Rfam assigns this 80-nucleotide RNA from Porphyromonas macacae to the family "Bacteroidetes FopS (family of paralogous sRNAs)". A reference for the family is Ruttiger et al. (2025), "The global RNA-binding protein RbpB is a regulator of polysaccharide utilization in Bacteroides thetaiotaomicron", Nat Commun. It scores 57 bits against the family's covariance model. The RNA-binding protein RbpB and BTncRNA_FopS sRNA are involved in the post-transcription regulation of polysaccharide utilisation loci (PUL). FopS sRNAs function as post-transcriptional repressors by binding to the vicinity of the start codon of the first mRNA of target PUL polycistrons, typically corresponding to the cognate SusC homolog, impeding translation of the respective glycan transporter.
[Rfam]
RNA sequence: GUGGUUUUUUCAUAAUAGUAUUAGAUUUAAGGUUAACAAUGCAACAAAAGGGAUGUCGGGAGACAUCCCUUUUGUUUCUC
Numbered sequence: 001g002u003g004g005u006u007u008u009u010u011c012a013u014a015a016u017a018g019u020a021u022u023a024g025a026u027u028u029a030a031g032g033u034u035a036a037c038a039a040u041g042c043a044a045c046a047a048a049a050g051g052g053a054u055g056u057c058g059g060g061a062g063a064c065a066u067c068c069c070u071u072u073u074g075u076u077u078c079u080c
Stems, first nucleotide, its partner, number of pairs: 051068007